[Rfam]
A member of the RNA family "Plastid-psbN 5UTR RNA" from Anisodus acutangulus, 61 nucleotides long. The source organism's lineage runs through Eukaryota, Viridiplantae, Spermatophyta, Mesangiospermae and Anisodus. The family's RNA type in Rfam is cis-regulatory element. Rfam 15.1 lists 2,345 matches to the family in 397 species. The match comes from Rfam's covariance-model search (59 bits). Rfam describes the family as follows. Plastid psbN is a non-coding RNA (ncRNA) recognised in plastids. It was reported as a conserved 11 stem-loop in the prime untranslated region (5UTR) of psbN genes. It has been reported that the motif is retained in a subset of mature transcripts in barley, which can suggests a possible role in transcript alternative 5 prime processing.
RNA sequence: UCCCAUACCCAACAAAGGAAUAGUUCUCCAUCCGGGAGUUGCUUUACCAUAUUCUGAAUUC
Numbered sequence: 001u002c003c004c005a006u007a008c009c010c011a012a013c014a015a016a017g018g019a020a021u022a023g024u025u026c027u028c029c030a031u032c033c034g035g036g037a038g039u040u041g042c043u044u045u046a047c048c049a050u051a052u053u054c055u056g057a058a059u060u061c
Stems, first nucleotide, its partner, number of pairs: 017045003021041007
Dot-bracket structure: ................(((.(((((((.......))))))).)))................